[Rfam]
RNA sequence: GAUCCCAGAGGUCAACACCCGACGACGCGUUGCGUUCUCGGGUGUUAUUUUG
Numbered sequence: 001g002a003u004c005c006c007a008g009a010g011g012u013c014a015a016c017a018c019c020c021g022a023c024g025a026c027g028c029g030u031u032g033c034g035u036u037c038u039c040g041g042g043u044g045u046u047a048u049u050u051u052g
Stems, first nucleotide, its partner, number of pairs: 016044007025035004

A member of the RNA family "ffh sRNA" from Bartonella bacilliformis, 52 nucleotides long. The literature on the family includes a 2009 paper in BMC Genomics by Meyer et al., "Identification of candidate structured RNAs in the marine organism 'Candidatus Pelagibacter ubique'".